[Rfam]
RNA sequence: CUAUGCUGUCAACGUCAUGGCAAAAGGAG
Numbered sequence: 001c002u003a004u005g006c007u008g009u010c011a012a013c014g015u016c017a018u019g020g021c022a023a024a025a026g027g028a029g
Base pairs, nucleotide, nucleotide: 001020002019003018004017005016007014008013
RNA: L31-Firmicutes ribosomal protein leader